[Rfam]
RNA sequence: GCCGCCUCGCGUUGUUUGGAAGACUAGUGAUUUUGUUGUUUUUAUUAAUAUAACAAAAAAUCACUAAUCUCCCUACAAAGCGUUGGU
Numbered sequence: 001g002c003c004g005c006c007u008c009g010c011g012u013u014g015u016u017u018g019g020a021a022g023a024c025u026a027g028u029g030a031u032u033u034u035g036u037u038g039u040u041u042u043u044a045u046u047a048a049u050a051u052a053a054c055a056a057a058a059a060a061u062c063a064c065u066a067a068u069c070u071c072c073c074u075a076c077a078a079a080g081c082g083u084u085g086g087u
Stems, first nucleotide, its partner, number of pairs: 002086003006082001009081002012078004018072002021070003027064007036056005
Dot-bracket structure: .(((.(..((.((((..((.(((...(((((((..(((((...........))))).)))))))...)))))..)))).))).))).

About this RNA: Shown here is an 87-nucleotide RNA from Operophtera brumata, a member of the family "mir-7 microRNA precursor family". Its family is annotated with miRNA-mediated post-transcriptional gene silencing and RISC complex in the Gene Ontology. Rfam describes the family as follows. This family represents the microRNA (miRNA) precursor mir-7.